[Rfam]
RNA: eL15-Euryarchaeota ribosomal protein leader
RNA sequence: CCCGUACGGCAACCGCCCACGGGCCGGGAUGUGGACCUGAUUCGAGGACGUCCUCGAUGCGGUCUGAACCACGAA
Numbered sequence: 001c002c003c004g005u006a007c008g009g010c011a012a013c014c015g016c017c018c019a020c021g022g023g024c025c026g027g028g029a030u031g032u033g034g035a036c037c038u039g040a041u042u043c044g045a046g047g048a049c050g051u052c053c054u055c056g057a058u059g060c061g062g063u064c065u066g067a068a069c070c071a072c073g074a075a
Stems, first nucleotide, its partner, number of pairs: 001023005026070002033065005